[Rfam]
RNA sequence: CCCGACUCGUCGGGACGACAUGUGGCUCGCCAGCCGGCGACGCUGAAUCGCAAG
Numbered sequence: 001c002c003c004g005a006c007u008c009g010u011c012g013g014g015a016c017g018a019c020a021u022g023u024g025g026c027u028c029g030c031c032a033g034c035c036g037g038c039g040a041c042g043c044u045g046a047a048u049c050g051c052a053a054g
Stems, first nucleotide, its partner, number of pairs: 001014005016050003024044003027040005
RNA: eL15-Euryarchaeota ribosomal protein leader